[Rfam]
Nucleotides: 074
Stems, first nucleotide, its partner, number of pairs: 011062008021052009
Number, partner (000 for none) and nucleotide at each position: 001000g002000u003000g004000g005000u006000u007000c008000a009000a010000a011062u012061u013060g014059a015058c016057u017056c018055u019000a020000g021052u022051a023050g024049g025048g026047a027046g028045u029044c030000c031000u032000u033000a034000u035000a036000u037000u038000u039000a040000a041000u042000g043000c044029g045028a046027c047026u048025c049024c050023c051022u052021a053000a054000u055018g056017g057016g058015g059014u060013c061012a062011g063000a064000u065000u066000g067000a068000a069000a070000c071000g072000c073000u074000g
A member of the RNA family "mir-929 microRNA precursor family" from Sipha flava, 74 nucleotides long. A search with the family's covariance model found it, with a score of 82 bits. Pairs were carried over by alignment from the consensus structure, which was predicted with RNAalifold.